This 157-nucleotide sequence from Scheffersomyces stipitis belongs to the Rfam family "Small nucleolar RNA snR80". Rfam links the family to the GO terms RNA processing and nucleolus. A reference for the family is Schattner et al. (2004), "Genome-wide searching for pseudouridylation guide snoRNAs: analysis of the Saccharomyces cerevisiae genome", Nucleic Acids Res. The organism belongs to Scheffersomyces stipitis, within Eukaryota. The family's RNA type in Rfam is H/ACA-box small nucleolar RNA.

RNA sequence: CACUGUUUGCCAACACUCUGGUGCCCGAUCUUCAAUGCCAUGAGCUUUGAUGCCAUAUUGGGUUCCUAUUUUGGUGCAAACUAGAAUAGUUCAGCUGACUACUCACCAUCGUGCUCUACCAAUAUGGGCAUGAUAGGUCCAUUUCAUUAGCUUACAU
Numbered sequence: 001c002a003c004u005g006u007u008u009g010c011c012a013a014c015a016c017u018c019u020g021g022u023g024c025c026c027g028a029u030c031u032u033c034a035a036u037g038c039c040a041u042g043a044g045c046u047u048u049g050a051u052g053c054c055a056u057a058u059u060g061g062g063u064u065c066c067u068a069u070u071u072u073g074g075u076g077c078a079a080a081c082u083a084g085a086a087u088a089g090u091u092c093a094g095c096u097g098a099c100u101a102c103u104c105a106c107c108a109u110c111g112u113g114c115u116c117u118a119c120c121a122a123u124a125u126g127g128g129c130a131u132g133a134u135a136g137g138u139c140c141a142u143u144u145c146a147u148u149a150g151c152u153u154a155c156a157u
Stems, first nucleotide, its partner, number of pairs: 007079003020066002023063002026060004093152004106137002108134002111131006